[Rfam]
RNA sequence: GAUAUAAUCAAAGCGCCAGGACUUAAAUCAGAUCGGACUAAAAAGGAUUUAAGUUGACGAGGUCAGGGUUAAUCGAAGAUUCGGCGGGUGCCCUGCGGUGUAACUCACCACCGAUAAAGGCUUAACAAAAUCUGCAAGUGAUUGUGGAAACAAAUAGGCUGGGUGAGAAA
Number, nucleotide and partner (000 for none) at each position: 001g000002a000003u000004a000005u000006a000007a000008u000009c000010a000011a000012a000013g000014c000015g000016c000017c000018a000019g000020g055021a054022c053023u052024u051025a050026a049027a048028u000029c046030a000031g000032a000033u000034c000035g000036g000037a000038c000039u000040a000041a000042a000043a000044a000045g000046g029047a000048u027049u026050u025051a024052a023053g022054u021055u020056g000057a000058c000059g000060a000061g000062g000063u000064c095065a094066g093067g092068g091069u000070u000071a000072a000073u084074c083075g082076a081077a000078g000079a000080u000081u076082c075083g074084g073085c000086g000087g000088g000089u000090g000091c068092c067093c066094u065095g064096c113097g112098g111099u110100g109101u000102a000103a000104c000105u000106c000107a000108c000109c100110a099111c098112c097113g096114a000115u000116a000117a000118a000119g160120g159121c158122u157123u156124a155125a000126c000127a000128a000129a000130a000131u148132c147133u146134g145135c144136a143137a142138g000139u000140g000141a000142u137143u136144g135145u134146g133147g132148a131149a000150a000151c000152a000153a000154a000155u124156a123157g122158g121159c120160u119161g000162g000163g000164u000165g000166a000167g000168a000169a000170a000
RNA: glmS glucosamine-6-phosphate activated ribozyme aptamer